[Rfam]
RNA sequence: AAAGUCCCUUCCGGGUAAGAGCUAGCCACUCACCUGGCCCUUUAGCUAUGCGCGACUGUGGGUAACUCCUGUCGUGAAGUGUUAGCGAAGGCACUCACAGGCCAGGUAUUGAGCCACGAAAUCGGUAAAUCGGAGGUGGUGAUGCAGUUAAGGUAAGCAGAAACCCACAAUGGUCAGGUUGUAUUGGCGAAACCUGACCAUACCUCCCGGGGUCGGAGACCC
Number, nucleotide and partner (000 for none) at each position: 001a000002a000003a000004g000005u000006c000007c000008c000009u000010u000011c037012c036013g035014g034015g033016u000017a000018a000019g031020a030021g029022c000023u190024a000025g188026c187027c000028a000029c021030u020031c019032a000033c015034c014035u013036g012037g011038c000039c091040c090041u089042u088043u000044a000045g086046c085047u084048a083049u081050g080051c076052g075053c074054g073055a072056c071057u000058g069059u000060g067061g066062g000063u000064a000065a000066c061067u060068c000069c058070u000071g056072u055073c054074g053075u052076g051077a000078a000079g000080u050081g049082u000083u048084a047085g046086c045087g000088a042089a041090g040091g039092c000093a000094c000095u000096c000097a000098c000099a000100g000101g000102c000103c000104a000105g000106g000107u000108a000109u000110u216111g214112a000113g213114c212115c211116a000117c209118g208119a000120a000121a000122u000123c000124g000125g000126u000127a000128a000129a000130u000131c000132g207133g206134a205135g204136g203137u202138g165139g164140u163141g000142a000143u000144g000145c000146a000147g000148u000149u000150a000151a000152g000153g000154u000155a000156a000157g000158c000159a000160g000161a000162a000163a140164c139165c138166c000167a000168c000169a000170a201171u200172g199173g198174u197175c196176a195177g194178g193179u192180u191181g000182u000183a000184u000185u000186g000187g026188c025189g000190a023191a180192a179193c178194c177195u176196g175197a174198c173199c172200a171201u170202a137203c136204c135205u134206c133207c132208c118209g117210g000211g115212g114213u113214c111215g000216g110217a000218g000219a000220c000221c000222c000
A member of the RNA family "Group II catalytic intron D1-D4-6" from Photorhabdus laumondii, 222 nucleotides long. Its family is annotated with Group II intron splicing in the Gene Ontology. It is one of the family's seed sequences.